[Rfam]
The record is a 75-nucleotide RNA sequence from Alligator sinensis, which matches "Mammalian CPEB3 ribozyme" in Rfam. A search with the family's covariance model found it, with a score of 40 bits. Lineage of the source: Eukaryota > Craniata > Teleostomi > Sarcopterygii > Alligator.
RNA sequence: AACUGCCCUAAUGGCCAUGGCAGGAGCGCUCACACCGUGGCCCUGUUAGAUUCUAACAAAACUGCAAAUUCUGCU
Numbered sequence: 001a002a003c004u005g006c007c008c009u010a011a012u013g014g015c016c017a018u019g020g021c022a023g024g025a026g027c028g029c030u031c032a033c034a035c036c037g038u039g040g041c042c043c044u045g046u047u048a049g050a051u052u053c054u055a056a057c058a059a060a061a062c063u064g065c066a067a068a069u070u071c072u073g074c075u
Stems, first nucleotide, its partner, number of pairs: 013042004019075007026038003047064003051060002